[Rfam]
RNA sequence: AGUUGCAAGUUUGAGGCCAUAGCAGAAGUGCUUACAAUGAGGCUUGUCAGAUUUCAAUAAAUCUGUGAAUUCUGCU
Numbered sequence: 001a002g003u004u005g006c007a008a009g010u011u012u013g014a015g016g017c018c019a020u021a022g023c024a025g026a027a028g029u030g031c032u033u034a035c036a037a038u039g040a041g042g043c044u045u046g047u048c049a050g051a052u053u054u055c056a057a058u059a060a061a062u063c064u065g066u067g068a069a070u071u072c073u074g075c076u
Base pairs, nucleotide, nucleotide: 013044016043017042018041021076022075023074024073025072026071027070029039030038048065049064050063051062052061053060054059